Record summary:
FMN riboswitch aptamer (RFN element): a 121-nucleotide RNA from Secundilactobacillus kimchicus. Rfam links the family to the GO term FMN binding. NCBI's taxonomy places the organism under Bacteria, Bacillati, Lactobacillales, Lactobacillaceae, Secundilactobacillus kimchicus. The RFN element is a highly conserved domain that is found frequently in the 5'-untranslated regions of prokaryotic mRNAs that encode for flavin mononucleotide (FMN) biosynthesis and transport proteins.
RNA sequence: GUUCAUCUUCAGGGCAGGGUGUAAUUCCCGACCGGCGGUAAAGCCCGCGACCUAUCUUUAAGAUAGUUGAUUCGGUGAGAUUCCGAAGCCGACAGUAUAGUCUGGUAUGCAGAAGAUUGGG
Numbered sequence: 001g002u003u004c005a006u007c008u009u010c011a012g013g014g015c016a017g018g019g020u021g022u023a024a025u026u027c028c029c030g031a032c033c034g035g036c037g038g039u040a041a042a043g044c045c046c047g048c049g050a051c052c053u054a055u056c057u058u059u060a061a062g063a064u065a066g067u068u069g070a071u072u073c074g075g076u077g078a079g080a081u082u083c084c085g086a087a088g089c090c091g092a093c094a095g096u097a098u099a100g101u102c103u104g105g106u107a108u109g110c111a112g113a114a115g116a117u118u119g120g121g
Stems, first nucleotide, its partner, number of pairs: 003119001005117006017029003031101002033091002035048004043089002052066002071087005093104003
Dot-bracket structure: ..(.((((((......(((.......))).[[((((((....[[))))...((...........))....(((((.......)))))]])).(((....]]))).......)))))).)..